RNA: Vault RNA
Organism: Trichonephila clavipes
RNA sequence: ACGCAGGCCUUGCCUAGUGGUUACUUCGAGUUUACUAGUUCCCUACAACUUCGCACCACGGGCGCAAACCUGCGUUUUU
Numbered sequence: 001a002c003g004c005a006g007g008c009c010u011u012g013c014c015u016a017g018u019g020g021u022u023a024c025u026u027c028g029a030g031u032u033u034a035c036u037a038g039u040u041c042c043c044u045a046c047a048a049c050u051u052c053g054c055a056c057c058a059c060g061g062g063c064g065c066a067a068a069c070c071u072g073c074g075u076u077u078u079u
Stems, first nucleotide, its partner, number of pairs: 002074006012063004017059004025055001027053003